[Rfam]
The record is an 82-nucleotide sequence from Sphingomonas gilva, which matches "ZMP/ZTP riboswitch aptamer (pfl RNA motif)" in Rfam. A reference for the family is Ren et al. (2015), "Global RNA Fold and Molecular Recognition for a pfl Riboswitch Bound to ZMP, a Master Regulator of One-Carbon Metabolism", Structure. Rfam 15.1 lists 3,295 matches to the family in 2,545 species. NCBI's taxonomy places the organism under Bacteria, Pseudomonadota, Sphingomonadales, Sphingomonadaceae, Sphingomonas. It scores 58 bits against the family's covariance model.
RNA sequence: CACCGUCCGCGUGACUGGCGCGAAAGGUGGAGCACCACCGGGGAGCGCGGGCUUGCUGAGCCGCGGCGCCUGGGCAUCCUCU
Numbered sequence: 001c002a003c004c005g006u007c008c009g010c011g012u013g014a015c016u017g018g019c020g021c022g023a024a025a026g027g028u029g030g031a032g033c034a035c036c037a038c039c040g041g042g043g044a045g046c047g048c049g050g051g052c053u054u055g056c057u058g059a060g061c062c063g064c065g066g067c068g069c070c071u072g073g074g075c076a077u078c079c080u081c082u
Stems, first nucleotide, its partner, number of pairs: 005052008015042002017070005027038004058077001060075003
Dot-bracket structure: ....((((((((..(([[[[[.....((((....))))..))..)))))))).....(.(((...]]]]]..))).).....